[Rfam]
RNA: Bacterial RNase P class A
Organism: Candidatus Tokpelaia sp.
RNA sequence: UCAGUCGGCCGGGCAGCCGCGCCAGUCAUAGGCCGAAAGGCGGCUGGUGAGGAAAGUCCGAGCUUCGCGGAAAUACGGUGCCGGGUAAUGCCCGGCGGGGGCGACCCCAGGGAAAGUGCCACAGAAAGCAAACCGCCUGGUUACAGGUAAGGGUGAAAGGGUAGGGUAAGAGCCUACCGCAUUGCCGGUAACGGCAAUGGCAGGGUAAACCCCGCCGGAAGCAAGACCGAAUAGGGAUAGAAGCGCCUUUUGGCGCAGGCCGAUUUCCGGGCCGCUAUCCGGGUUGGUCGCAUGAGGCAUAUGGUGACAUAUGUCCUAGAGGAAUGGCUGCCAAACAGGGCGCUGAGGCGCUUUGUGAACAGAACUCGGCUUACAGGCCGGCUGACCUU
Numbered sequence: 001u002c003a004g005u006c007g008g009c010c011g012g013g014c015a016g017c018c019g020c021g022c023c024a025g026u027c028a029u030a031g032g033c034c035g036a037a038a039g040g041c042g043g044c045u046g047g048u049g050a051g052g053a054a055a056g057u058c059c060g061a062g063c064u065u066c067g068c069g070g071a072a073a074u075a076c077g078g079u080g081c082c083g084g085g086u087a088a089u090g091c092c093c094g095g096c097g098g099g100g101g102c103g104a105c106c107c108c109a110g111g112g113a114a115a116g117u118g119c120c121a122c123a124g125a126a127a128g129c130a131a132a133c134c135g136c137c138u139g140g141u142u143a144c145a146g147g148u149a150a151g152g153g154u155g156a157a158a159g160g161g162u163a164g165g166g167u168a169a170g171a172g173c174c175u176a177c178c179g180c181a182u183u184g185c186c187g188g189u190a191a192c193g194g195c196a197a198u199g200g201c202a203g204g205g206u207a208a209a210c211c212c213c214g215c216c217g218g219a220a221g222c223a224a225g226a227c228c229g230a231a232u233a234g235g236g237a238u239a240g241a242a243g244c245g246c247c248u249u250u251u252g253g254c255g256c257a258g259g260c261c262g263a264u265u266u267c268c269g270g271g272c273c274g275c276u277a278u279c280c281g282g283g284u285u286g287g288u289c290g291c292a293u294g295a296g297g298c299a300u301a302u303g304g305u306g307a308c309a310u311a312u313g314u315c316c317u318a319g320a321g322g323a324a325u326g327g328c329u330g331c332c333a334a335a336c337a338g339g340g341c342g343c344u345g346a347g348g349c350g351c352u353u354u355g356u357g358a359a360c361a362g363a364a365c366u367c368g369g370c371u372u373a374c375a376g377g378c379c380g381g382c383u384g385a386c387c388u389u
Base pairs, nucleotide, nucleotide: 001385002384003383004382005381006380007379008378009377010376011374012332013331014330015329016328017327018326020049021048022047023046024045025044026043027042054372055371056370058369059368060367061366062365063221064220065219066218072266073265076217077216078215079214080213081095082094083093084092085091096110097108098107099106100105111212112211116210117209118206119205120204133152134151135148136147137146138145139144160178161177162176163175164174165173179201180199181198182197183196184195185194186193187192225289226288227287228286235280236279237278238277239276240275258272260270261269262268296315297314298313299312300311301310302309303308